[Rfam]
RNA: glmS glucosamine-6-phosphate activated ribozyme aptamer
Organism: Effusibacillus dendaii
RNA sequence: AAAGGUAAUGAAGCGCCUGGACUGCAACGGUGGGUUGCAGUUGACGCGGAGGAGGUUAGCGAACCAUUCGGCGGGUGCCUCCCGGCAGACAAUCCCUCUGCCGUAAAGAGAAGUUUCAAAUCCGAUGGGUGACUGUCGGGACAAGAGCAGCUCAAGGGUAAAU
Numbered sequence: 001a002a003a004g005g006u007a008a009u010g011a012a013g014c015g016c017c018u019g020g021a022c023u024g025c026a027a028c029g030g031u032g033g034g035u036u037g038c039a040g041u042u043g044a045c046g047c048g049g050a051g052g053a054g055g056u057u058a059g060c061g062a063a064c065c066a067u068u069c070g071g072c073g074g075g076u077g078c079c080u081c082c083c084g085g086c087a088g089a090c091a092a093u094c095c096c097u098c099u100g101c102c103g104u105a106a107a108g109a110g111a112a113g114u115u116u117c118a119a120a121u122c123c124g125a126u127g128g129g130u131g132a133c134u135g136u137c138g139g140g141a142c143a144a145g146a147g148c149a150g151c152u153c154a155a156g157g158g159u160a161a162a163u
Stems, first nucleotide, its partner, number of pairs: 020042008028033001051082005060070003083103006108153003113148002122139007